[Rfam]
RNA sequence: CAAACUGUUACCUUGCCCCGGACACGUAACAGAAACCGGGGUUUACGGUAACGAAACCCCG
Dot-bracket structure: ....(((((((..((.......)).)))))))....(((((((..((....)).)))))))
Numbered sequence: 001c002a003a004a005c006u007g008u009u010a011c012c013u014u015g016c017c018c019c020g021g022a023c024a025c026g027u028a029a030c031a032g033a034a035a036c037c038g039g040g041g042u043u044u045a046c047g048g049u050a051a052c053g054a055a056a057c058c059c060c061g
Stems, first nucleotide, its partner, number of pairs: 005032007014024002037061007046053002